[Rfam]
RNA sequence: GAUGACUGAUUUCUCUUGGUGUUUAGAGUUCCGUAUGCCUGGUCUAGCACCAUUUGAAAUCAGUUAUGU
Numbered sequence: 001g002a003u004g005a006c007u008g009a010u011u012u013c014u015c016u017u018g019g020u021g022u023u024u025a026g027a028g029u030u031c032c033g034u035a036u037g038c039c040u041g042g043u044c045u046a047g048c049a050c051c052a053u054u055u056g057a058a059a060u061c062a063g064u065u066a067u068g069u
Stems, first nucleotide, its partner, number of pairs: 002067002004064001006063008017052005024046004

Rfam assigns this 69-nucleotide RNA sequence from Petromyzon marinus to the family "mir-29 microRNA precursor family". This family represents the microRNA (miRNA) precursors mir-29.